TPP riboswitch aptamer (THI element): a 103-nucleotide sequence from Paenibacillus larvae. The base pairs follow the family's consensus structure, which is taken from published work. It is one of the family's seed sequences.
RNA sequence: UUUUUUCACUAGGGGCGCCCGUACGGGCUGAGACAGAAUGGUUUCUGGACCCUUUGAACCUGAUCUGGAUUAUACCAGCGUAGGAAAGUGGGAAUGCAUGAAU
Numbered sequence: 001u002u003u004u005u006u007c008a009c010u011a012g013g014g015g016c017g018c019c020c021g022u023a024c025g026g027g028c029u030g031a032g033a034c035a036g037a038a039u040g041g042u043u044u045c046u047g048g049a050c051c052c053u054u055u056g057a058a059c060c061u062g063a064u065c066u067g068g069a070u071u072a073u074a075c076c077a078g079c080g081u082a083g084g085a086a087a088g089u090g091g092g093a094a095u096g097c098a099u100g101a102a103u
Stems, first nucleotide, its partner, number of pairs: 006091005011053004016047001017028004035046004059084004065078004